[Rfam]
RNA sequence: AGGAGGAACAGCCCCAGUGGCUAUGGCAGCUCUGGAAGCCUGGAUUCAGCCUCCGCAGGAACUACGGGCUCGGGGCUCUCGGUUCUCCGUCCUCAGGGCCUGGAGGCUCCGGGGCGGG
Numbered sequence: 001a002g003g004a005g006g007a008a009c010a011g012c013c014c015c016a017g018u019g020g021c022u023a024u025g026g027c028a029g030c031u032c033u034g035g036a037a038g039c040c041u042g043g044a045u046u047c048a049g050c051c052u053c054c055g056c057a058g059g060a061a062c063u064a065c066g067g068g069c070u071c072g073g074g075g076c077u078c079u080c081g082g083u084u085c086u087c088c089g090u091c092c093u094c095a096g097g098g099c100c101u102g103g104a105g106g107c108u109c110c111g112g113g114g115c116g117g118g
Base pairs, nucleotide, nucleotide: 002110003109004108005107009102010101011100012098013097014096019091020090021089025087028086029085032082033081034080035079039074040073041072042071

Rfam assigns this 118-nucleotide sequence from Nyctereutes procyonoides to the family "mir-8834 microRNA precursor family". It scores 50 bits against the family's covariance model. Rfam 15.1 lists 13,926 matches to the family in 17 species. The organism belongs to Nyctereutes, within Eukaryota.